[Rfam]
Annotation: Shown here is a 77-nucleotide RNA sequence from Jaculus jaculus, a member of the family "mir-3473 microRNA precursor family". The family's consensus secondary structure was predicted with RNAalifold. Lineage of the source: Eukaryota > Metazoa > Gnathostomata > Euarchontoglires > Jaculus.
RNA sequence: ACUGCUAAGCCAUCUCUCCAGCCCCAUUUUUAAAAUUUUUAAAAGAUAUUUCAGGGCUGGAGAGAUGGCUUAGUGGU
Numbered sequence: 001a002c003u004g005c006u007a008a009g010c011c012a013u014c015u016c017u018c019c020a021g022c023c024c025c026a027u028u029u030u031u032a033a034a035a036u037u038u039u040u041a042a043a044a045g046a047u048a049u050u051u052c053a054g055g056g057c058u059g060g061a062g063a064g065a066u067g068g069c070u071u072a073g074u075g076g077u
Base pairs, nucleotide, nucleotide: 002076003075004074005073006072007071008070009069010068011067012066013065014064015063016062017061018060019059020058021057022056023055024054